Record summary:
Shown here is an 86-nucleotide RNA sequence from Dinoponera quadriceps, a member of the family "mir-932 microRNA precursor family". A reference for the family is Berezikov et al. (2010), "Evolutionary flux of canonical microRNAs and mirtrons in Drosophila", Nat Genet.
[Rfam]
RNA sequence: UGCAUCCUCAAUUCCGUAGUGCAUUGCAGUCGAUUAUUCGAUUCACGAGAGAGAACCUGCAAGCACCGCGGGAGUGAGGCGGCUUC
Numbered sequence: 001u002g003c004a005u006c007c008u009c010a011a012u013u014c015c016g017u018a019g020u021g022c023a024u025u026g027c028a029g030u031c032g033a034u035u036a037u038u039c040g041a042u043u044c045a046c047g048a049g050a051g052a053g054a055a056c057c058u059g060c061a062a063g064c065a066c067c068g069c070g071g072g073a074g075u076g077a078g079g080c081g082g083c084u085u086c
Base pairs, nucleotide, nucleotide: 006079007078008077009076010075013072014071015070016069017068020065021064022063024062025061026060027059028058